A member of the RNA family "TPP riboswitch aptamer (THI element)" from Rhodobacteraceae bacterium KLH11, 106 nucleotides long. The organism belongs to Paracoccaceae, within Bacteria. A search with the family's covariance model found it, with a score of 74 bits. Rfam links the family to the GO term thiamine pyrophosphate binding.

RNA sequence: AAACCUACCUCGGGGUGCGCAGAAGAUUGCGCUGAGAUGUUUUCAGACGAACCCGUUGAACCUGAACCGGCUAAAACCGGCGGAGGGAAAGGUGAAGGUUUCAUCG
Numbered sequence: 001a002a003a004c005c006u007a008c009c010u011c012g013g014g015g016u017g018c019g020c021a022g023a024a025g026a027u028u029g030c031g032c033u034g035a036g037a038u039g040u041u042u043u044c045a046g047a048c049g050a051a052c053c054c055g056u057u058g059a060a061c062c063u064g065a066a067c068c069g070g071c072u073a074a075a076a077c078c079g080g081c082g083g084a085g086g087g088a089a090a091g092g093u094g095a096a097g098g099u100u101u102c103a104u105c106g
Stems, first nucleotide, its partner, number of pairs: 006094005011055004016049001017032005039048003061086003067080004